RNA sequence: GCGCUCGUCUUUGGGGAGUAGCCUGCUUUCCGUCCCCCGGAAAGCGAACGCGUCAACACACUCGGCUUUCAGCCGUGGCGCGUUCGACCGAGUCGGUUU
Numbered sequence: 001g002c003g004c005u006c007g008u009c010u011u012u013g014g015g016g017a018g019u020a021g022c023c024u025g026c027u028u029u030c031c032g033u034c035c036c037c038c039g040g041a042a043a044g045c046g047a048a049c050g051c052g053u054c055a056a057c058a059c060a061c062u063c064g065g066c067u068u069u070c071a072g073c074c075g076u077g078g079c080g081c082g083u084u085c086g087a088c089c090g091a092g093u094c095g096g097u098u099u
Base pairs, nucleotide, nucleotide: 026044027043028042046085047084048083049082050081051080052079053078054077055076063075064074065073066072067071

The record is a 99-nucleotide sequence, which matches "Manganese Mn2+ riboswitch aptamer (yybP-ykoY)" in Rfam. Its family is annotated with manganese ion binding in the Gene Ontology.